[Rfam]
RNA sequence: GCCAAGGCCUUUCAAAGGCUUGGCCAUACGGGCGCCGGCGGGUGUCCGGCGCUCUCGGAUCCAUGUUGCUCAUUGGAGGAUGUGGUUAUGAGAA
Numbered sequence: 001g002c003c004a005a006g007g008c009c010u011u012u013c014a015a016a017g018g019c020u021u022g023g024c025c026a027u028a029c030g031g032g033c034g035c036c037g038g039c040g041g042g043u044g045u046c047c048g049g050c051g052c053u054c055u056c057g058g059a060u061c062c063a064u065g066u067u068g069c070u071c072a073u074u075g076g077a078g079g080a081u082g083u084g085g086u087u088a089u090g091a092g093a094a
Base pairs, nucleotide, nucleotide: 001024002023003022004021005020006019008018009017031053032052033051034050035049036048037047038046054092055091056090057089059087061085062084063083064082065081066080067079069078070077071076
Dot-bracket structure: ((((((.((.......))))))))......((((((((.......))))))))((((.(.(((((((.(((....)))))))))).).))))..
Shown here is a 94-nucleotide RNA sequence from Microvirga sp. BSC39, a member of the family "Repression of heat shock gene expression (ROSE) element". Lineage of the source: Bacteria > Pseudomonadota > Alphaproteobacteria > Hyphomicrobiales > Microvirga. Rfam's curators write: This family represents a 5' UTR cis-regulatory element found in heat shock mRNAs and is known as the ROSE (repression of heat shock gene expression) element. The ROSE element is a negative regulator of heat shock gene expression. The secondary structure is thought to be regulated by temperature. This regulation blocks access to the ribosome binding site under normal conditions. A search with the family's covariance model found it, with a score of 63 bits. Pairs were carried over by alignment from the consensus structure, which is taken from published work. On this family, see Nocker et al., Nucleic Acids Res 2001: "A mRNA-based thermosensor controls expression of rhizobial heat shock genes".